[Rfam]
RNA: R2 RNA element
RNA sequence: ACCAAGCUAAAAUGAGCUGACUCCGCCCCGUGAUGUAAUAUCGUACGGUGGUUGCACGGGGCUUGGGGAGGAGUCGGGGGUGGUUUUAGUGGGUAAGAGUCCCACACGCUGGCGUAUCCAGGCCAGUGUCUUUUGAAGAUUUCCACCUCCUCAAAA
Numbered sequence: 001a002c003c004a005a006g007c008u009a010a011a012a013u014g015a016g017c018u019g020a021c022u023c024c025g026c027c028c029c030g031u032g033a034u035g036u037a038a039u040a041u042c043g044u045a046c047g048g049u050g051g052u053u054g055c056a057c058g059g060g061g062c063u064u065g066g067g068g069a070g071g072a073g074u075c076g077g078g079g080g081u082g083g084u085u086u087u088a089g090u091g092g093g094u095a096a097g098a099g100u101c102c103c104a105c106a107c108g109c110u111g112g113c114g115u116a117u118c119c120a121g122g123c124c125a126g127u128g129u130c131u132u133u134u135g136a137a138g139a140u141u142u143c144c145a146c147c148u149c150c151u152c153a154a155a156a
Stems, first nucleotide, its partner, number of pairs: 026061006063154004076150008089105005107128006